A member of the RNA family "Manganese Mn2+ riboswitch aptamer (yybP-ykoY)" from a Methylophilaceae bacterium, 166 nucleotides long. The match comes from Rfam's covariance-model search (92 bits). Rfam describes the family as follows. This RNA was originally discovered in E. coli during a large scale screen and was named SraF. The family was later found to exist upstream of related families of protein genes in many bacteria, including the the yybP and ykoK genes in B. subtilis. Taxonomically the source falls in Methylophilaceae (Bacteria, Pseudomonadota, Betaproteobacteria, Nitrosomonadales). Pairs were carried over by alignment from the consensus structure.
[Rfam]
RNA sequence: CUCUUCUUCAUUGGGGAGUAGCCUCCUUUUCAAAAAGGGCUUGCGUCAACAUACUUGGCUUCCAGCCAUGGCGCAAGCGGUUCAAGAGCUUGGCGAGACCAUUGACUAUGCCGCUUCCAUUGGCUGGAGGGGUUGCAUGGUCAUUGGUUAUAUCCGGCCGGAGCUC
Numbered sequence: 001c002u003c004u005u006c007u008u009c010a011u012u013g014g015g016g017a018g019u020a021g022c023c024u025c026c027u028u029u030u031c032a033a034a035a036a037g038g039g040c041u042u043g044c045g046u047c048a049a050c051a052u053a054c055u056u057g058g059c060u061u062c063c064a065g066c067c068a069u070g071g072c073g074c075a076a077g078c079g080g081u082u083c084a085a086g087a088g089c090u091u092g093g094c095g096a097g098a099c100c101a102u103u104g105a106c107u108a109u110g111c112c113g114c115u116u117c118c119a120u121u122g123g124c125u126g127g128a129g130g131g132g133u134u135g136c137a138u139g140g141u142c143a144u145u146g147g148u149u150a151u152a153u154c155c156g157g158c159c160g161g162a163g164c165u166c
Stems, first nucleotide, its partner, number of pairs: 026037003039078010056068005080166001083163001